[Rfam]
This 68-nucleotide RNA from Oryctolagus cuniculus belongs to the Rfam family "Small nucleolar RNA U2-30". The base pairs follow the family's consensus structure, which is taken from published work. It is annotated as a C/D-box small nucleolar RNA. It scores 68 bits against the family's covariance model. On this family, see Tycowski et al., Curr Biol 2004: "Guide RNAs with 5' Caps and Novel Box C/D snoRNA-like Domains for Modification of snRNAs in Metazoa". Taxonomically the source falls in Oryctolagus (Eukaryota, Bilateria, Deuterostomia, Teleostomi).
RNA sequence: AAGCAAUGACAAAGGGUUUCCAACUGACCUUUGUAACUACGAAGUUUUCUACACUUGACCUGAGCUCA
Numbered sequence: 001a002a003g004c005a006a007u008g009a010c011a012a013a014g015g016g017u018u019u020c021c022a023a024c025u026g027a028c029c030u031u032u033g034u035a036a037c038u039a040c041g042a043a044g045u046u047u048u049c050u051a052c053a054c055u056u057g058a059c060c061u062g063a064g065c066u067c068a
Base pairs, nucleotide, nucleotide: 002066003065004064011032012031013030014029015028017026